[Rfam]
RNA sequence: UGGCCGACGGGUCGAUCUCGCGGGUGACGACGAGGUAGUUGCGCAGCGCGACGGCGUGCAGGUGCUC
Numbered sequence: 001u002g003g004c005c006g007a008c009g010g011g012u013c014g015a016u017c018u019c020g021c022g023g024g025u026g027a028c029g030a031c032g033a034g035g036u037a038g039u040u041g042c043g044c045a046g047c048g049c050g051a052c053g054g055c056g057u058g059c060a061g062g063u064g065c066u067c
Stems, first nucleotide, its partner, number of pairs: 004062002008058002011028002015025003034055001036053001039051005
RNA: ASdes TB sRNA
Organism: Mycolicibacterium grossiae